[Rfam]
RNA: Small nucleolar RNA U3
Organism: Branchiostoma floridae
RNA sequence: AAGAUCAUACUUUUAGGGAUCAUUUCUAUAGUAUGUGACCCGUGCAUUCUCACGGAAACGUGAACGCACGCAGAAGCCACGAUGACGAGCGGUAGCGUUCCCUUCUGAGCGCGAAGCGGGUCGGGAGUGGAGUCCCUGGGGCUCCGGGCUCCCGGCCAUUGAUGACCGUUCCUUCCCCUCUUACGGAGGGCUUGGAGGAAGGGAACGCAUUCCGAGUGGU
Dot-bracket structure: ..(.(((((((..(((((.....))))).)))))).).)..........(..((......)).)...........(((((..............((((((((((((..(((.......((((..(((((((((.......)))))..))))..)))).........)))..(...(((((.....)))))...)..)))))))))))).......)))))